[Rfam]
RNA sequence: GAUAAAGGGGGUGAAAGUCCCCCUCGCCGUAAGUCCAAGGUUUCCUGCGCAACGUUCAUCGGCGCAGGGUGAGUCGGCCCCUAAGGUGAGGCAGAGAUGCGUAGCUGAUGGGAAGCUGGUUAAUAUUCCAGCACCGUGUUCAAAUGCGAUGGGGUGACGGAUUGCGAAAUGCGAGCGGGCGGUUGGAAGAGCCCGUGACUGGUACUAAGAAGGUGGUUAGGCAAAUCCGGCCACGAAAUUCAAGGUAUUGGUGCGAAGGAGCUACGGCUCUGAAGUUGUAGGCAGUGGUCCCGGGAAAAACCUCUAAGCUUCAGUUUGAACAUGACCGUACCGCAAACCGACACAGGUGGACGGGAUGAAUAUUCUAAGGCGCU
Number, nucleotide and partner (000 for none) at each position: 001g000002a000003u000004a000005a000006a024007g023008g022009g021010g020011g019012u000013g000014a000015a000016a000017g000018u000019c011020c010021c009022c008023c007024u006025c372026g371027c370028c369029g000030u000031a000032a000033g352034u351035c350036c349037a000038a000039g332040g331041u000042u000043u000044c068045c067046u066047g065048c064049g063050c000051a000052a000053c061054g060055u000056u000057c000058a000059u000060c054061g053062g000063c049064g048065c047066a046067g045068g044069g000070u000071g000072a000073g000074u000075c328076g327077g326078c000079c000080c111081c110082u000083a000084a000085g106086g105087u104088g000089a102090g000091g100092c099093a098094g000095a000096g000097a000098u093099g092100c091101g000102u089103a000104g087105c086106u085107g000108a000109u000110g081111g080112g000113a000114a000115g132116c131117u130118g129119g128120u000121u000122a000123a000124u000125a000126u000127u000128c119129c118130a117131g116132c115133a000134c000135c324136g323137u322138g321139u320140u319141c318142a317143a316144a315145u314146g309147c308148g000149a000150u000151g304152g303153g302154g301155u300156g000157a000158c000159g291160g290161a289162u288163u000164g000165c000166g000167a000168a000169a000170u280171g279172c278173g277174a276175g196176c195177g194178g193179g192180c191181g000182g000183u000184u000185g000186g000187a000188a000189g000190a000191g180192c179193c178194c177195g176196u175197g254198a000199c000200u000201g249202g248203u247204a246205c000206u000207a000208a000209g241210a240211a000212g000213g234214u233215g232216g231217u230218u229219a000220g228221g227222c000223a000224a000225a000226u000227c221228c220229g218230g217231c216232c215233a214234c213235g000236a000237a000238a000239u000240u210241c209242a000243a000244g000245g000246u204247a203248u202249u201250g000251g000252u000253g000254c197255g000256a000257a000258g271259g270260a269261g268262c267263u000264a000265c000266g000267g262268c261269u260270c259271u258272g000273a000274a000275g000276u174277u173278g172279u171280a170281g000282g000283c000284a000285g000286u000287g000288g162289u161290c160291c159292c000293g000294g000295g000296a000297a000298a000299a000300a155301c154302c153303u152304c151305u000306a000307a000308g147309c146310u000311u000312c000313a000314g145315u144316u143317u142318g141319a140320a139321c138322a137323u136324g135325a000326c077327c076328g075329u000330a000331c040332c039333g000334c000335a000336a000337a000338c347339c346340g000341a000342c000343a000344c000345a000346g339347g338348u000349g036350g035351a034352c033353g000354g366355g365356a364357u000358g000359a000360a000361u000362a000363u000364u356365c355366u354367a000368a000369g028370g027371c026372g025373c000374u000

Rfam assigns this 374-nucleotide part of an RNA from Oligella urethralis to the family "Bacterial large subunit ribosomal RNA". Its family is annotated with structural constituent of ribosome and ribosome in the Gene Ontology. The base pairs follow the family's consensus structure, which is taken from published work. A search with the family's covariance model found it, with a score of 2781 bits.